[Rfam]
Rfam assigns this 67-nucleotide RNA from Azotobacter vinelandii to the family "Repression of heat shock gene expression (ROSE) element". The literature on the family includes a 2013 paper in PLoS One by Krajewski et al., "Short ROSE-Like RNA Thermometers Control IbpA Synthesis in Pseudomonas Species". By type it is an RNA thermoregulator.

RNA sequence: UGCGGGAUGCCGGAGCCGGGUCCCGCGACAGAAUGCUCGCUGAUCUAUCGGGAGACUGACGAUGUCC
Numbered sequence: 001u002g003c004g005g006g007a008u009g010c011c012g013g014a015g016c017c018g019g020g021u022c023c024c025g026c027g028a029c030a031g032a033a034u035g036c037u038c039g040c041u042g043a044u045c046u047a048u049c050g051g052g053a054g055a056c057u058g059a060c061g062a063u064g065u066c067c
Stems, first nucleotide, its partner, number of pairs: 001027008010019003031056001036054003040051004
The sequence is in the family's curated seed alignment.
Gene Ontology terms of the family: response to temperature stimulus and regulation of translation.
NCBI's taxonomy places the organism under Bacteria, Pseudomonadati, Pseudomonadales, Pseudomonadaceae, Azotobacter.